[Rfam]
RNA: SAH (S-adenosyl-L-homocysteine) riboswitch aptamer
Organism: Rhizobacter sp.
RNA sequence: UUCCGAGGAGCGUUGCAAGGCACACAGUGCCCUAGGCUCGGAGAUCUUCAUGCAACAGCGCUCACCCGCA
Numbered sequence: 001u002u003c004c005g006a007g008g009a010g011c012g013u014u015g016c017a018a019g020g021c022a023c024a025c026a027g028u029g030c031c032c033u034a035g036g037c038u039c040g041g042a043g044a045u046c047u048u049c050a051u052g053c054a055a056c057a058g059c060g061c062u063c064a065c066c067c068g069c070a
Base pairs, nucleotide, nucleotide: 001043002042003041004040005039006038019031020030021029022028023027